RNA sequence: CGAGCCGCACGGCAAGCAGUAACAACGAACCCACAGAAGUCAGCAGAUGCCAUAGUAGUCAUCGCCUUAAAGCUCGUGGGCGAUGAAGAAGGGC
Numbered sequence: 001c002g003a004g005c006c007g008c009a010c011g012g013c014a015a016g017c018a019g020u021a022a023c024a025a026c027g028a029a030c031c032c033a034c035a036g037a038a039g040u041c042a043g044c045a046g047a048u049g050c051c052a053u054a055g056u057a058g059u060c061a062u063c064g065c066c067u068u069a070a071a072g073c074u075c076g077u078g079g080g081c082g083a084u085g086a087a088g089a090a091g092g093g094c
Base pairs, nucleotide, nucleotide: 001027002026004023007020008019039048040047041046049094050093051092059086060085061084062083063082064081065080066079067078